[Rfam]
RNA sequence: GUAAAGCGUUGAUCUGGGAGGUUGUUGAUACACUGAUAGCCGUUGUCUAUGUAUCAAGUAUUUCCAGGGAGUAAAGUCUAUGCAAGGAUUAUAGGCGA
Numbered sequence: 001g002u003a004a005a006g007c008g009u010u011g012a013u014c015u016g017g018g019a020g021g022u023u024g025u026u027g028a029u030a031c032a033c034u035g036a037u038a039g040c041c042g043u044u045g046u047c048u049a050u051g052u053a054u055c056a057a058g059u060a061u062u063u064c065c066a067g068g069g070a071g072u073a074a075a076g077u078c079u080a081u082g083c084a085a086g087g088a089u090u091a092u093a094g095g096c097g098a
Base pairs, nucleotide, nucleotide: 014067015066016065018064019063020062021061025057026056027055028054029053030052031051032050076096077095078094081093082092084090
Rfam assigns this 98-nucleotide RNA sequence from Acholeplasma oculi to the family "S10-Clostridia ribosomal protein leader".
NCBI's taxonomy places the organism under Bacteria, Mycoplasmatota, Acholeplasmatales, Acholeplasmataceae, Acholeplasma.
The literature on the family includes a 2020 paper in BMC Microbiol by Eckert and Weinberg, "Discovery of 20 novel ribosomal leader candidates in bacteria and archaea".
By type it is a cis-regulatory leader.
It scores 40 bits against the family's covariance model.